A member of the RNA family "ZMP/ZTP riboswitch aptamer (pfl RNA motif)" from Deinococcus yavapaiensis, 85 nucleotides long. Lineage of the source: Bacteria > Deinococcota > Deinococcales > Deinococcaceae > Deinococcus yavapaiensis. For this family Rfam cites "Recognition of the bacterial alarmone ZMP through long-distance association of two RNA subdomains" (Jones and Ferre-D'Amare, Nat Struct Mol Biol, 2015). A search with the family's covariance model found it, with a score of 65 bits.

[Rfam]
RNA sequence: CCGAAUCGCGGUGACUGGCGAUGAAGGUGGGUGACCACCGGGAAGCCGCGAAACUCGAGCAUGGCCGCUCGCCUGGGCCGAAGAC
Numbered sequence: 001c002c003g004a005a006u007c008g009c010g011g012u013g014a015c016u017g018g019c020g021a022u023g024a025a026g027g028u029g030g031g032u033g034a035c036c037a038c039c040g041g042g043a044a045g046c047c048g049c050g051a052a053a054c055u056c057g058a059g060c061a062u063g064g065c066c067g068c069u070c071g072c073c074u075g076g077g078c079c080g081a082a083g084a085c
Stems, first nucleotide, its partner, number of pairs: 003054001006051007015042002017073005027038004062080005